[Rfam]
RNA sequence: CGCAGAGUAGCCAAGGCGCGUUAAGUGUUGCGAAACGGGACGUUGUUCGCAAACGAAAGGAUCAUUCCUGCGGUGCCGCGGCGCGUCCGUUGUA
Number, nucleotide and partner (000 for none) at each position: 001c000002g093003c092004a091005g090006a000007g000008u000009a000010g082011c081012c080013a000014a000015g077016g076017c075018g074019c072020g071021u070022u000023a000024a000025g054026u053027g000028u052029u051030g050031c049032g048033a047034a046035a000036c000037g000038g088039g087040a086041c085042g084043u000044u000045g000046u034047u033048c032049g031050c030051a029052a028053a026054c025055g000056a000057a000058a069059g068060g067061a066062u000063c000064a000065u000066u061067c060068c059069u058070g021071c020072g019073g000074u018075g017076c016077c015078g000079c000080g012081g011082c010083g000084c042085g041086u040087c039088c038089g000090u005091u004092g003093u002094a000